[Rfam]
RNA: FMN riboswitch aptamer (RFN element)
RNA sequence: CAAGAUUCUCGGGGUAAGGUGAAAUUCCUGACCGGCGGUGAGGUUCGCUGAAUAGCGAAUCGCAGCCCGCGACUCCCUCGCUUGGGCAAAUAAGCAAGGGACUGAUCUGGUUAAACUCCAGAGCCGACGGUACAGUCCGGAUGAGAGAGGAUCAAG
Numbered sequence: 001c002a003a004g005a006u007u008c009u010c011g012g013g014g015u016a017a018g019g020u021g022a023a024a025u026u027c028c029u030g031a032c033c034g035g036c037g038g039u040g041a042g043g044u045u046c047g048c049u050g051a052a053u054a055g056c057g058a059a060u061c062g063c064a065g066c067c068c069g070c071g072a073c074u075c076c077c078u079c080g081c082u083u084g085g086g087c088a089a090a091u092a093a094g095c096a097a098g099g100g101a102c103u104g105a106u107c108u109g110g111u112u113a114a115a116c117u118c119c120a121g122a123g124c125c126g127a128c129g130g131u132a133c134a135g136u137c138c139g140g141a142u143g144a145g146a147g148a149g150g151a152u153c154a155a156g
Stems, first nucleotide, its partner, number of pairs: 004153007017029003031136002033126002035070004065124002074101005106122005128139003